Background: The family of this 431-nucleotide sequence from Hoeflea prorocentri is "Bacterial RNase P class A". Ribonuclease P (RNase P) is a ubiquitous endoribonuclease, found in archaea, bacteria and eukarya as well as chloroplasts and mitochondria. The base pairs follow the family's consensus structure, which is taken from published work. It is annotated as a ribozyme.

[Rfam]
RNA sequence: CCAGUCGGCCAGGCAGCCGCACCCGGCAAUGCCGAAAGGCAGCCGGGUGAGGAAAGUCCGGGCUCCACGGAAACACGGUGCCGGAUAACAUCCGGCGGGGGCAACCCCAGGGAAAGUGCCACAGAAAGCAAACCGCCCCGCCUGCUUUCCGGUCCAAAAUGGUUCACGGACCGGAAAGCCGGCGGGGUAAGGGUGAAAGGGUGGGGUAAGAGCCCACCGCGUUUUUGGCAACAGGAACGGCACGGUAAACCCCACCGGGAGCAAGACCGAAUAGGGAUGACGCGGAGCGCAAGCUCCAGCCUGUUUCCGGGCGGAUCAUCCGGGUUGGUUGCUUGAGGCGCUUUGCAAAUUGCGCCCCAGAGGAAUGGCUGUCGCUGCCAGCGCUCCGGCGAUGCGCAGUACAGAACCCGGCUUACAGGCCGGCUGGCGCU
Number, nucleotide and partner (000 for none) at each position: 001c427002c426003a425004g424005u423006c422007g421008g420009c419010c418011a000012g373013g372014c371015a370016g369017c368018c367019g000020c049021a048022c047023c046024c045025g044026g043027c042028a000029a000030u000031g000032c000033c000034g000035a000036a000037a000038g000039g000040c000041a000042g027043c026044c025045g024046g023047g022048u021049g020050a000051g000052g000053a000054a414055a413056g412057u000058c411059c410060g409061g408062g407063c261064u260065c259066c258067a000068c000069g000070g000071a000072a306073a305074c000075a000076c257077g256078g255079u254080g253081c095082c094083g093084g092085a091086u000087a000088a000089c000090a000091u085092c084093c083094g082095g081096c110097g108098g107099g106100g105101g000102c000103a000104a000105c100106c099107c098108c097109a000110g096111g252112g251113a000114a000115a000116g250117u249118g246119c245120c244121a000122c000123a000124g000125a000126a000127a000128g000129c000130a000131a000132a000133c192134c191135g188136c187137c186138c185139c184140g183141c182142c181143u000144g000145c000146u000147u000148u000149c000150c000151g000152g000153u000154c000155c000156a000157a000158a000159a000160u000161g000162g000163u000164u000165c000166a000167c000168g000169g000170a000171c000172c000173g000174g000175a000176a000177a000178g000179c000180c000181g142182g141183c140184g139185g138186g137187g136188u135189a000190a000191g134192g133193g000194u000195g000196a000197a000198a000199g000200g218201g217202u216203g215204g214205g213206g000207u000208a000209a000210g000211a000212g000213c205214c204215c203216a202217c201218c200219g241220c239221g238222u237223u236224u235225u234226u233227g232228g000229c000230a000231a000232c227233a226234g225235g224236a223237a222238c221239g220240g000241c219242a000243c000244g120245g119246u118247a000248a000249a117250c116251c112252c111253c080254a079255c078256c077257g076258g066259g065260a064261g063262c000263a000264a000265g330266a329267c328268c327269g000270a000271a000272u000273a000274g000275g321276g320277a319278u318279g317280a316281c000282g000283c000284g000285g000286a000287g000288c000289g000290c000291a000292a000293g000294c000295u000296c000297c000298a000299g312300c311301c310302u309303g000304u000305u073306u072307c000308c000309g302310g301311g300312c299313g000314g000315a000316u280317c279318a278319u277320c276321c275322g000323g000324g000325u000326u000327g268328g267329u266330u265331g000332c000333u000334u000335g000336a000337g356338g355339c354340g353341c352342u000343u000344u349345g000346c000347a000348a000349a344350u000351u000352g341353c340354g339355c338356c337357c000358c000359a000360g000361a000362g000363g000364a000365a000366u000367g018368g017369c016370u015371g014372u013373c012374g000375c000376u000377g000378c000379c000380a000381g000382c000383g000384c000385u000386c000387c000388g000389g000390c000391g000392a000393u000394g000395c000396g000397c000398a000399g000400u000401a000402c000403a000404g000405a000406a000407c062408c061409c060410g059411g058412c056413u055414u054415a000416c000417a000418g010419g009420c008421c007422g006423g005424c004425u003426g002427g001428c000429g000430c000431u000